[Rfam]
RNA sequence: UAUUCCAGGACCUUAUUGGAUGUGUCUUCUGUGGCCCCUGGUGCGAUAACUGUGCCAACAGCAGAGGGAGCAUUAAACUCAUUGCCCACAGGAAAGUGUGGGGAGUGAGACCCAUGUUCCUAGAAUC
Numbered sequence: 001u002a003u004u005c006c007a008g009g010a011c012c013u014u015a016u017u018g019g020a021u022g023u024g025u026c027u028u029c030u031g032u033g034g035c036c037c038c039u040g041g042u043g044c045g046a047u048a049a050c051u052g053u054g055c056c057a058a059c060a061g062c063a064g065a066g067g068g069a070g071c072a073u074u075a076a077a078c079u080c081a082u083u084g085c086c087c088a089c090a091g092g093a094a095a096g097u098g099u100g101g102g103g104a105g106u107g108a109g110a111c112c113c114a115u116g117u118u119c120c121u122a123g124a125a126u127c
Base pairs, nucleotide, nucleotide: 006052007051008050010047014043015042016041022035023034067120069118070117071116072115073114079108080107081106082105083104087100088099089098
About this RNA:
A member of the RNA family "Small nucleolar RNA ACA64" from Bucco capensis, 127 nucleotides long. A reference for the family is Schattner et al. (2006), "A computational screen for mammalian pseudouridylation guide H/ACA RNAs", RNA. The organism belongs to Bucco, within Eukaryota. It scores 43 bits against the family's covariance model.